[Rfam]
RNA: Small nucleolar RNA SNORD2
RNA sequence: UAGUGAAAUGAUAGCAAUCAUCUUUCGGGACUGACCUGAGAAUAAAAAAUAAAAGUGAUAAAAUACACAUGACAUAAAAUUUAUCAUUU
Numbered sequence: 001u002a003g004u005g006a007a008a009u010g011a012u013a014g015c016a017a018u019c020a021u022c023u024u025u026c027g028g029g030a031c032u033g034a035c036c037u038g039a040g041a042a043u044a045a046a047a048a049a050u051a052a053a054a055g056u057g058a059u060a061a062a063a064u065a066c067a068c069a070u071g072a073c074a075u076a077a078a079a080u081u082u083a084u085c086a087u088u089u
Base pairs, nucleotide, nucleotide: 002088003087004086005085006084